The family of this 92-nucleotide RNA sequence from Streptomyces chromofuscus is "ZMP/ZTP riboswitch aptamer (pfl RNA motif)". The base pairs follow the family's consensus structure, which is taken from published work. The match comes from Rfam's covariance-model search (47 bits). Taxonomically the source falls in Streptomyces (Bacteria, Bacillati, Actinomycetota, Actinomycetes).
RNA sequence: CCAGCGGGCCGUGACUGGCGCGCUGGGAUGGGACCGACCAUCGGGGAGCGGCCUUGUGCUGUGAGCGAGUGCCGUGCGCCUGGGCCGAACCG
Numbered sequence: 001c002c003a004g005c006g007g008g009c010c011g012u013g014a015c016u017g018g019c020g021c022g023c024u025g026g027g028a029u030g031g032g033a034c035c036g037a038c039c040a041u042c043g044g045g046g047a048g049c050g051g052c053c054u055u056g057u058g059c060u061g062u063g064a065g066c067g068a069g070u071g072c073c074g075u076g077c078g079c080c081u082g083g084g085c086c087g088a089a090c091c092g
Stems, first nucleotide, its partner, number of pairs: 003057001006054007015045002017080005028041004071085003